[Rfam]
RNA sequence: GCAUGACGCUCUUGAGCGUUUCCUCCCUAAACUCGGCAGCCGCGCUUUUAGCGCGGCUCUUUUUUUGUGUGCG
Numbered sequence: 001g002c003a004u005g006a007c008g009c010u011c012u013u014g015a016g017c018g019u020u021u022c023c024u025c026c027c028u029a030a031a032c033u034c035g036g037c038a039g040c041c042g043c044g045c046u047u048u049u050a051g052c053g054c055g056g057c058u059c060u061u062u063u064u065u066u067g068u069g070u071g072c073g
Base pairs, nucleotide, nucleotide: 008017009016010015038058039057040056041055042054043053044052045051
This 73-nucleotide RNA sequence from Elstera litoralis belongs to the Rfam family "Makes More Granules Regulator RNA (mmgR)". Rfam classes the family as a small RNA. The source organism's lineage runs through Bacteria, Pseudomonadati, Pseudomonadota, Rhodospirillales and Elstera. About the family: SuhB later renamed mmgR (makes more granules regulator) was a putative non-coding RNA found multiple times in the Agrobacterium tumefaciens genome and related alpha-proteobacteria. Other non-coding RNAs uncovered in the same analysis include: speF, ybhL, metA, and serC.Several studies inSinorhizobium meliloti showed that suhB element is indeed a non-coding RNA:firstly it was detected on Northern blot and called Sm8RNA, secondly in an RNAseq study referred to as SmelC689.The mutant phenotype's (strain lacking the small RNA) cytoplasm contains higher content of polyhydroxybutyrate (PBH)storage granules than wild type strain. The sRNA is required to limit the PBH intracellular accumulation when the nitrogen-fixing Sinorhizobium meliloti is under condition of surplus carbon in relation to nitrogen.